A member of the RNA family "c-di-GMP-I riboswitch aptamer" from Bacillus sp. MRMR6, 90 nucleotides long.

[Rfam]
RNA sequence: AUCUGACAAAGGCAAACUUCAACGAAAGGGAAGGACGCAAAGCCGUGAACCUAAACACUCUUAAAUGUGUAUGGUUGUCUGGUUACCAGG
Dot-bracket structure: ...........((...((((..(....).))))...))..((((..(((((....(((........)))...)))..)).))))......
Numbered sequence: 001a002u003c004u005g006a007c008a009a010a011g012g013c014a015a016a017c018u019u020c021a022a023c024g025a026a027a028g029g030g031a032a033g034g035a036c037g038c039a040a041a042g043c044c045g046u047g048a049a050c051c052u053a054a055a056c057a058c059u060c061u062u063a064a065a066u067g068u069g070u071a072u073g074g075u076u077g078u079c080u081g082g083u084u085a086c087c088a089g090g
Stems, first nucleotide, its partner, number of pairs: 012038002017033004023028001041084004047079002049075003056069003
The organism belongs to Bacillus, within Bacteria.